[Rfam]
RNA sequence: UCCAAAGCCCAUGCUCUUUCCACUGAGCCAUGCUGCAUUUAAGUAGGUACCAGCGUGGCUCAGUGGAAAGAGCAUGGGCUUUGGA
Numbered sequence: 001u002c003c004a005a006a007g008c009c010c011a012u013g014c015u016c017u018u019u020c021c022a023c024u025g026a027g028c029c030a031u032g033c034u035g036c037a038u039u040u041a042a043g044u045a046g047g048u049a050c051c052a053g054c055g056u057g058g059c060u061c062a063g064u065g066g067a068a069a070g071a072g073c074a075u076g077g078g079c080u081u082u083g084g085a
Stems, first nucleotide, its partner, number of pairs: 001085003006080006013073008023063009
Shown here is an 85-nucleotide RNA from Ornithorhynchus anatinus, a member of the family "mir-130 microRNA precursor family". A search with the family's covariance model found it, with a score of 49 bits. The literature on the family includes a 2002 paper in Curr Biol by Lagos-Quintana et al., "Identification of tissue-specific microRNAs from mouse". Its family is annotated with miRNA-mediated post-transcriptional gene silencing and RISC complex in the Gene Ontology. The organism belongs to Ornithorhynchus, within Eukaryota.